[Rfam]
RNA sequence: AAUUGAUAAAGGCAAACCUAGCGAAAGAUAGGCGCGAAAAGCAUGAAGUCUAAAGUUAUUAAAGAACAAUGAUAGUUCAGCUACAAAA
Numbered sequence: 001a002a003u004u005g006a007u008a009a010a011g012g013c014a015a016a017c018c019u020a021g022c023g024a025a026a027g028a029u030a031g032g033c034g035c036g037a038a039a040a041g042c043a044u045g046a047a048g049u050c051u052a053a054a055g056u057u058a059u060u061a062a063a064g065a066a067c068a069a070u071g072a073u074a075g076u077u078c079a080g081c082u083a084c085a086a087a088a
Stems, first nucleotide, its partner, number of pairs: 013036001017032004022027001040082003045078003048073003055067003

The family of this 88-nucleotide RNA sequence from Alkalibaculum sporogenes is "c-di-GMP-I riboswitch aptamer". A search with the family's covariance model found it, with a score of 60 bits. Rfam describes the family as follows. GEMM was predicted in a large-scale screen for bacterial structured RNA regulatory elements.